Shown here is a 100-nucleotide RNA sequence, a member of the family "Xanthine riboswitch aptamer (NMT1 RNA)".

RNA sequence: GUCGAGAGUAGAAGCGUUCACCGCACUGGUGCGGCGCGGCAGCCCAGAUGCGGGCUGCGCGCACCGGAAUCGACCGCCGCGGCCGGAAAUUGCUCUCGGA
Numbered sequence: 001g002u003c004g005a006g007a008g009u010a011g012a013a014g015c016g017u018u019c020a021c022c023g024c025a026c027u028g029g030u031g032c033g034g035c036g037c038g039g040c041a042g043c044c045c046a047g048a049u050g051c052g053g054g055c056u057g058c059g060c061g062c063a064c065c066g067g068a069a070u071c072g073a074c075c076g077c078c079g080c081g082g083c084c085g086g087a088a089a090u091u092g093c094u095c096u097c098g099g100a
Stems, first nucleotide, its partner, number of pairs: 005096006015085001018087002021082004027076004

Rfam links the family to the GO term purine nucleobase binding. The sequence is in the family's curated seed alignment.